[Rfam]
RNA: HNH endonuclease-associated RNA and ORF (HEARO) RNA
Organism: Pseudoalteromonas translucida
RNA sequence: GUCAACUACUCACCCCUAAAGGGAUGAGCUUGUAAAAGCGCUUGUUGACCAGACCACUAACUGAGGAUUAGAAAUGUUAGUAAACGAUAAUUUAGAUGUAGAAACCUUGGAAUGCCGCCUCAGUUCCAAGCUCUUUCGUGGCACUGUAAACAGUCCUAUUGAGUUAGGGGCAGUCAACCACGUUGCGAAGCUAAAUUAUCUGGUCGAGAGGAAGUCGAA
Dot-bracket structure: ((((((.(.(.(..((....))..)..)(((....)))...).))))))..((((((((((..............))))).....((((((((((......((..(((((((([[..[[[[.))))))))....)).((((...((...((.((((((......))).))).)))).)))).........)))))))))))))))..]]]]..]]....